Shown here is an 89-nucleotide sequence from Halalkalibacter suaedae, a member of the family "c-di-GMP-I riboswitch aptamer". A search with the family's covariance model found it, with a score of 80 bits. The family's consensus secondary structure is taken from published work. NCBI's taxonomy places the organism under Bacteria, Bacillota, Bacilli, Caryophanales, Halalkalibacter.
[Rfam]
RNA sequence: CUACGAUAAGGGCAAACCUACUGAAAGGUGGGGACGCAAAGCUACAGGCCUAACGCACUAGAUGGUGCUAAGGUGGCUGGGAUACCGAA
Numbered sequence: 001c002u003a004c005g006a007u008a009a010g011g012g013c014a015a016a017c018c019u020a021c022u023g024a025a026a027g028g029u030g031g032g033g034a035c036g037c038a039a040a041g042c043u044a045c046a047g048g049c050c051u052a053a054c055g056c057a058c059u060a061g062a063u064g065g066u067g068c069u070a071a072g073g074u075g076g077c078u079g080g081g082a083u084a085c086c087g088a089a
Stems, first nucleotide, its partner, number of pairs: 012037002017032006040083001042081002045079003048074003055068004